[Rfam]
RNA: Small nucleolar RNA F1/F2/snoR5a
Organism: Musa troglodytarum
RNA sequence: GAAUGCCAUUAGGUGUCUGAUGUUCAGUUCAACGGUCGUGGUUGGGCAUCUCGUUAUGAUGGCAGAAAGGGAAGAGCAGGUCUUGCGACACUGGUUGCUCCAUUUCUCAGAGCUUCCUGUUACUUAUUUCCUGCUUACACGC
Numbered sequence: 001g002a003a004u005g006c007c008a009u010u011a012g013g014u015g016u017c018u019g020a021u022g023u024u025c026a027g028u029u030c031a032a033c034g035g036u037c038g039u040g041g042u043u044g045g046g047c048a049u050c051u052c053g054u055u056a057u058g059a060u061g062g063c064a065g066a067a068a069g070g071g072a073a074g075a076g077c078a079g080g081u082c083u084u085g086c087g088a089c090a091c092u093g094g095u096u097g098c099u100c101c102a103u104u105u106c107u108c109a110g111a112g113c114u115u116c117c118u119g120u121u122a123c124u125u126a127u128u129u130c131c132u133g134c135u136u137a138c139a140c141g142c
Base pairs, nucleotide, nucleotide: 004064005063006062007061008060009059019050020049021048022047023046024045025044026043027042028041029040032039075135076134077133078132079131090120091119093117094116097113098112099111